Shown here is a 255-nucleotide RNA sequence from Acrobeloides nanus, a member of the family "RNase MRP". Lineage of the source: Eukaryota > Eumetazoa > Nematoda > Cephalobidae > Acrobeloides. The family's consensus secondary structure is taken from published work. It is annotated as a ribozyme. The match comes from Rfam's covariance-model search (81 bits).
[Rfam]
RNA sequence: UAGUGAUGACAGGUAGAGUAAUCGGAACCACUCAACGGUCCUUGUGACCGCCAAACAAUUUCUGAGGAAAGUCCCUGGACCAGUGACUGAAAGAGUCGGCACAUCGGAGUGUCCAGUCAGGGUUAAAGGCUGAAGGGUAGCCUGUUAGGUAGGCCAAGACAUCCUUGGAUGGAGCAUCACCUGGCAGGUCCCUGAUGUUCGUCCAAUCACAGUAACGCUCGUAUAAACAGGACAGGGCUUACCCCGUCAAUCACU
Numbered sequence: 001u002a003g004u005g006a007u008g009a010c011a012g013g014u015a016g017a018g019u020a021a022u023c024g025g026a027a028c029c030a031c032u033c034a035a036c037g038g039u040c041c042u043u044g045u046g047a048c049c050g051c052c053a054a055a056c057a058a059u060u061u062c063u064g065a066g067g068a069a070a071g072u073c074c075c076u077g078g079a080c081c082a083g084u085g086a087c088u089g090a091a092a093g094a095g096u097c098g099g100c101a102c103a104u105c106g107g108a109g110u111g112u113c114c115a116g117u118c119a120g121g122g123u124u125a126a127a128g129g130c131u132g133a134a135g136g137g138u139a140g141c142c143u144g145u146u147a148g149g150u151a152g153g154c155c156a157a158g159a160c161a162u163c164c165u166u167g168g169a170u171g172g173a174g175c176a177u178c179a180c181c182u183g184g185c186a187g188g189u190c191c192c193u194g195a196u197g198u199u200c201g202u203c204c205a206a207u208c209a210c211a212g213u214a215a216c217g218c219u220c221g222u223a224u225a226a227a228c229a230g231g232a233c234a235g236g237g238c239u240u241a242c243c244c245c246g247u248c249a250a251u252c253a254c255u
Base pairs, nucleotide, nucleotide: 002255003254004253005252006251007249008248009247016220017219018218019217022065023064024063025062026061027060036050037049038048039047040046069240070239071238073237074236075235076234085097086096087095088094114132115131116130117129118128135192136191137190141188142187143186144185145184146183147182148181149180150179151177153175154174161170162169163168